[Rfam]
RNA: Bacterial RNase P class A
RNA sequence: CCAGGCGACCGCUGCGGAGCAAUCCGGGGAGGAAAGUCCGGGCUCCAUAGGGCAAGACGCCGGCUAACGGCCGGGAGGCGCGAGCCUACGGAAAGUGCCACAGAAAAGAUACCGCCCAAGCGCGCAAGCGCCGGUAAGGGUGAAAAGGUGCGGUAAGAGCGCACCGCGCUUCCGGCAACGGAAGUGGCAGGGUAAACCCCGUCUGGAGCAAGGCCAAAUAGGCGUGCCAUAGCACGGCCCGUGCUGCACGCGGGUAGGCUGCUGGAGCCAGUGCGCAAGUGCUGGCCUAGAGGAAUGGUCGCCCACGACAGAACCCGGCUUAUCGG
Numbered sequence: 001c002c003a004g005g006c007g008a009c010c011g012c013u014g015c016g017g018a019g020c021a022a023u024c025c026g027g028g029g030a031g032g033a034a035a036g037u038c039c040g041g042g043c044u045c046c047a048u049a050g051g052g053c054a055a056g057a058c059g060c061c062g063g064c065u066a067a068c069g070g071c072c073g074g075g076a077g078g079c080g081c082g083a084g085c086c087u088a089c090g091g092a093a094a095g096u097g098c099c100a101c102a103g104a105a106a107a108g109a110u111a112c113c114g115c116c117c118a119a120g121c122g123c124g125c126a127a128g129c130g131c132c133g134g135u136a137a138g139g140g141u142g143a144a145a146a147g148g149u150g151c152g153g154u155a156a157g158a159g160c161g162c163a164c165c166g167c168g169c170u171u172c173c174g175g176c177a178a179c180g181g182a183a184g185u186g187g188c189a190g191g192g193u194a195a196a197c198c199c200c201g202u203c204u205g206g207a208g209c210a211a212g213g214c215c216a217a218a219u220a221g222g223c224g225u226g227c228c229a230u231a232g233c234a235c236g237g238c239c240c241g242u243g244c245u246g247c248a249c250g251c252g253g254g255u256a257g258g259c260u261g262c263u264g265g266a267g268c269c270a271g272u273g274c275g276c277a278a279g280u281g282c283u284g285g286c287c288u289a290g291a292g293g294a295a296u297g298g299u300c301g302c303c304c305a306c307g308a309c310a311g312a313a314c315c316c317g318g319c320u321u322a323u324c325g326g
Stems, first nucleotide, its partner, number of pairs: 001326002003323001004303007012029002015026004034321003038318005043208004050240004055204005060074005075089001076087004090199002095197002097193003112139002114135003120131004147165006166188001167186008212260004222251006231245005267286008